[Rfam]
RNA: Glycine riboswitch aptamer
RNA sequence: CGAGCCGGAGCGGGAGAGCCUCGUCCCAGGACGAGCACCGAAGGAGCAAGCUCCCCGCCAAUCUCUCAGGUACCACACCGCUCCAGGCCA
Numbered sequence: 001c002g003a004g005c006c007g008g009a010g011c012g013g014g015a016g017a018g019c020c021u022c023g024u025c026c027c028a029g030g031a032c033g034a035g036c037a038c039c040g041a042a043g044g045a046g047c048a049a050g051c052u053c054c055c056c057g058c059c060a061a062u063c064u065c066u067c068a069g070g071u072a073c074c075a076c077a078c079c080g081c082u083c084c085a086g087g088c089c090a
Base pairs, nucleotide, nucleotide: 007084008083009082010081011080012079013078020035021034022033023032037071038070039069040067041066044065045064046063050058051057